This 115-nucleotide sequence from Acer saccharum belongs to the Rfam family "Small nucleolar RNA Z278".
The match comes from Rfam's covariance-model search (40 bits).
snoZ278 is a C/D box small nucleolar RNA. Its methylation guide targets have not been reported.
The family's RNA type in Rfam is C/D-box small nucleolar RNA.
NCBI's taxonomy places the organism under Eukaryota, Viridiplantae, Tracheophyta, Spermatophyta, Acer.
The literature on the family includes a 2003 paper in Nucleic Acids Res by Chen et al., "The high diversity of snoRNAs in plants: identification and comparative study of 120 snoRNA genes from Oryza sativa".
RNA sequence: GCUAGUGAUGAUCCAAUCCACUUUGUUGAGGUGUAGUGGAGUCAAGCCCUGUUUUACAGGGGAACCUACUUGGCAGAAGCUACAACGCUUUGAUAUUACUGGAUUUAACUGAGGC
Numbered sequence: 001g002c003u004a005g006u007g008a009u010g011a012u013c014c015a016a017u018c019c020a021c022u023u024u025g026u027u028g029a030g031g032u033g034u035a036g037u038g039g040a041g042u043c044a045a046g047c048c049c050u051g052u053u054u055u056a057c058a059g060g061g062g063a064a065c066c067u068a069c070u071u072g073g074c075a076g077a078a079g080c081u082a083c084a085a086c087g088c089u090u091u092g093a094u095a096u097u098a099c100u101g102g103a104u105u106u107a108a109c110u111g112a113g114g115c
Stems, first nucleotide, its partner, number of pairs: 001115003048060004